[Rfam]
RNA sequence: CAGUGUUACAGCACUUUUAGAAUUUGUCUAGCAGAUUUGCCUAUGUUUUUACUGGAAAACCCCC
Numbered sequence: 001c002a003g004u005g006u007u008a009c010a011g012c013a014c015u016u017u018u019a020g021a022a023u024u025u026g027u028c029u030a031g032c033a034g035a036u037u038u039g040c041c042u043a044u045g046u047u048u049u050u051a052c053u054g055g056a057a058a059a060c061c062c063c064c
Stems, first nucleotide, its partner, number of pairs: 034061001036059003040055002044051002

Rfam assigns this 64-nucleotide RNA from Prolemur simus to the family "U7 small nuclear RNA". Animal histone pre-mRNAs are spliced by a different mechanism than nuclear pre-mRNAs and self-splicing introns. This processing involves the U7 snRNP, which contains only one RNA species: U7. The 5' end of U7 RNA is thought to base-pair to a conserved spacer element downstream of the cleavage site in histone pre-mRNA. This family contains a number of annotated U7 pseudogenes. The base pairs follow the family's consensus structure, which was predicted with PFOLD. NCBI's taxonomy places the organism under Eukaryota, Euteleostomi, Euarchontoglires, Lemuriformes, Prolemur.